Fluoride riboswitch aptamer (crcB RNA motif): an 82-nucleotide RNA from Gluconobacter sp. DsW_058. It scores 37 bits against the family's covariance model.

[Rfam]
Nucleotides: 082
Base pairs, nucleotide, nucleotide: 010025011024012023013022016073017072018071020069021068045063046062047060048059049058050057
Number, partner (000 for none) and nucleotide at each position: 001000u002000u003000c004000g005000a006000c007000a008000a009000c010025g011024g012023c013022a014000a015000u016073g017072g018071a019000u020069u021068c022013u023012g024011c025010c026000u027000g028000a029000c030000c031000a032000u033000a034000c035000u036000g037000g038000u039000c040000g041000a042000a043000c044000c045063g046062c047060u048059c049058u050057c051000c052000u053000c054000c055000g056000c057050g058049a059048g060047a061000u062046g063045c064000u065000g066000a067000u068021g069020a070000u071018u072017c073016c074000u075000g076000u077000c078000a079000a080000a081000c082000u